[Rfam]
RNA sequence: CGCGUGGUGUCUGGCUAAAGAGACCGGAUAGCGACGCGGCUUUAUGAAGAGGU
Numbered sequence: 001c002g003c004g005u006g007g008u009g010u011c012u013g014g015c016u017a018a019a020g021a022g023a024c025c026g027g028a029u030a031g032c033g034a035c036g037c038g039g040c041u042u043u044a045u046g047a048a049g050a051g052g053u
Stems, first nucleotide, its partner, number of pairs: 001038005007032002011027004015022001
A member of the RNA family "L31-Gammaproteobacteria ribosomal protein leader" from Sodalis-like endosymbiont of Proechinophthirus fluctus, 53 nucleotides long. The family is grouped with related families in Rfam's "Ribosomal Protein L31 Leader clan". Lineage of the source: Bacteria > Pseudomonadati > Pseudomonadota > Enterobacterales > Sodalis. A reference for the family is Eckert and Weinberg (2020), "Discovery of 20 novel ribosomal leader candidates in bacteria and archaea", BMC Microbiol.